[Rfam]
RNA sequence: CUUUCGCCAUUCUGGCACGCCCCCUGCUUAGAGACCGGUACAUCGAGCGCGACCUUCAAUGGUGAACGGCGGCGCUCCCCCGGCAGCCCAAGGCUUAUGACGGGAACGGACAAAGGCGUCCUCGCUAGUACUAGCGGGACGCC
Numbered sequence: 001c002u003u004u005c006g007c008c009a010u011u012c013u014g015g016c017a018c019g020c021c022c023c024c025u026g027c028u029u030a031g032a033g034a035c036c037g038g039u040a041c042a043u044c045g046a047g048c049g050c051g052a053c054c055u056u057c058a059a060u061g062g063u064g065a066a067c068g069g070c071g072g073c074g075c076u077c078c079c080c081c082g083g084c085a086g087c088c089c090a091a092g093g094c095u096u097a098u099g100a101c102g103g104g105a106a107c108g109g110a111c112a113a114a115g116g117c118g119u120c121c122u123c124g125c126u127a128g129u130a131c132u133a134g135c136g137g138g139a140c141g142c143c
Stems, first nucleotide, its partner, number of pairs: 013112002015027003047075004053069002056065002077104003115143007123136005
Shown here is a 143-nucleotide RNA sequence from Pseudomonas indica, a member of the family "Pseudomonas sRNA P11".
The literature on the family includes a 2006 paper in Nucleic Acids Res by Livny et al., "Identification of 17 Pseudomonas aeruginosa sRNAs and prediction of sRNA-encoding genes in 10 diverse pathogens using the bioinformatic tool sRNAPredict2".
A search with the family's covariance model found it, with a score of 74 bits.
Rfam describes the family as follows. This small RNA (sRNA) was computationally identified in the genome of the opportunistic pathogen Pseudomonas aeruginosa and its expression verified by northern blot analysis. P11 is located between a putative threonine protein kinase and putative nitrate reductase and appears to be conserved in several Pseudomonas species. P11 has a predicted Rho independent terminator at the 3'end but the function of P11 is unknown.